[Rfam]
This 123-nucleotide RNA from Pokkaliibacter plantistimulans belongs to the Rfam family "Ribosomal S15 leader".
For this family Rfam cites "Pseudoknot and translational control in the expression of the S15 ribosomal protein" (Benard et al., Biochimie, 1996).
The family's RNA type in Rfam is cis-regulatory leader.
RNA sequence: CGCGCCAUCUGUAAAUAUGCACGGUUGGCGUCUGUUGAUUGCAUAUUGAUUAUUGGAGUUAUUGAAAUGGCUUUGACCGCUGAACAUAAAGCUCAGAUUCUGAAAGAUUUCGCUCAGACUGAG
Numbered sequence: 001c002g003c004g005c006c007a008u009c010u011g012u013a014a015a016u017a018u019g020c021a022c023g024g025u026u027g028g029c030g031u032c033u034g035u036u037g038a039u040u041g042c043a044u045a046u047u048g049a050u051u052a053u054u055g056g057a058g059u060u061a062u063u064g065a066a067a068u069g070g071c072u073u074u075g076a077c078c079g080c081u082g083a084a085c086a087u088a089a090a091g092c093u094c095a096g097a098u099u100c101u102g103a104a105a106g107a108u109u110u111c112g113c114u115c116a117g118a119c120u121g122a123g
Stems, first nucleotide, its partner, number of pairs: 007026001009024004053076006